A member of the RNA family "mir-764 microRNA precursor family" from Cavia porcellus, 85 nucleotides long. Rfam 15.1 lists 118 matches to the family in 117 species. It scores 86 bits against the family's covariance model.

RNA sequence: AAUCUGGAAUUCACGUGCUCACUUGUCCUCCUCCAUGUUUGAAAGAUACAGGGAGGAGGCCAUAGUGGCAACUGUCACCAUGAUU
Numbered sequence: 001a002a003u004c005u006g007g008a009a010u011u012c013a014c015g016u017g018c019u020c021a022c023u024u025g026u027c028c029u030c031c032u033c034c035a036u037g038u039u040u041g042a043a044a045g046a047u048a049c050a051g052g053g054a055g056g057a058g059g060c061c062a063u064a065g066u067g068g069c070a071a072c073u074g075u076c077a078c079c080a081u082g083a084u085u
Stems, first nucleotide, its partner, number of pairs: 001085004007079001012074002016070003020067004024062002027059008036050002040046001

For this family Rfam cites "In silico detection and characteristics of novel microRNA genes in the Equus caballus genome using an integrated ab initio and comparative genomic approach" (Zhou et al., Genomics, 2009). Taxonomically the source falls in Cavia (Eukaryota, Glires, Rodentia, Hystricomorpha).